Record summary: The record is a 77-nucleotide RNA sequence from Alligator sinensis, which matches "Mammalian CPEB3 ribozyme" in Rfam. It scores 38 bits against the family's covariance model. NCBI's taxonomy places the organism under Eukaryota, Bilateria, Teleostomi, Crocodylia, Alligator. Rfam's curators write: The mammalian CPEB3 ribozyme is a self cleaving RNA located in the second intron of the CPEB3 gene which belongs to a family of genes regulating messenger RNA polyadenylation. This ribozyme is highly conserved and found only in mammals. The CPEB3 ribozyme is structurally and biochemically related to the human hepatitis delta virus (HDV) ribozyme and the HDV ribozyme is proposed to have arisen from the human transcriptome. There is currently only one other known self cleaving ribozyme in mammals, the CoTC motif.
Nucleotides: 077
Stems, first nucleotide, its partner, number of pairs: 016045003022077005028071001030040002049066006
Number, partner (000 for none) and nucleotide at each position: 001000a002000g003000g004000u005000a006000a007000c008000a009000a010000c011000u012000u013000a014000g015000a016045g017044g018043c019000c020000a021000u022077a023076g024075c025074a026073g027000a028071a029000a030040u031039g032000c033000u034000c035000a036000u037000g038000g039031u040030g041000c042000u043018g044017c045016c046000u047000g048000u049066c050065a051064g052063a053062u054061u055000c056000c057000a058000a059000c060000a061054a062053a063052u064051c065050u066049g067000a068000g069000a070000a071028u072000c073026c074025u075024g076023c077022u